[Rfam]
Nucleotides: 149
Base pairs, nucleotide, nucleotide: 001149002148003147004146005145006144008142009141010140012138013137014136015135016134017133018132019131020130021129022128023127024126025125027123028122029121031119034116035115036114037113038112039111040110042108043107044105045104046103047102048101049100050098051097054093055092056091065090066089067088068087069086070085071084072083074081
Number, partner (000 for none) and nucleotide at each position: 001149u002148c003147a004146u005145a006144u007000c008142u009141g010140g011000a012138c013137u014136g015135u016134a017133g018132a019131a020130a021129c022128a023127c024126c025125u026000g027123a028122a029121g030000u031119g032000a033000c034116u035115g036114a037113a038112g039111u040110u041000a042108g043107u044105c045104c046103g047102g048101u049100u050098u051097a052000g053000g054093u055092a056091u057000g058000a059000g060000a061000a062000u063000g064000a065090u066089u067088g068087g069086a070085g071084c072083a073000c074081c075000u076000c077000u078000c079000c080000a081074g082000a083072u084071g085070u086069u087068c088067c089066a090065g091056a092055u093054g094000u095000a096000a097051u098050g099000a100049a101048a102047c103046c104045g105044g106000u107043g108042c109000a110040a111039g112038c113037u114036u115035c116034a117000a118000g119031c120000u121029c122028u123027u124000g125025a126024g127023g128022u129021g130020u131019u132018u133017c134016u135015a136014c137013a138012g139000g140010c141009u142008a143000c144006a145005u146004a147003u148002g149001a